[Rfam]
Background: Rfam assigns this 85-nucleotide RNA to the family "dinG RNA". It is annotated as a small RNA. It is one of the family's seed sequences.

RNA sequence: AAUGAUACUUUCGCCAAAUGGCGGCCCGCUGGGAUGCGGGAUGAUACCGGUGCAGGUUGGAAACUGAUACCUGCUGCUGGGUCAU
Dot-bracket structure: ..........(((((....)))))(((((......)))))((((..(.((..(((((...........)))))...)).).))))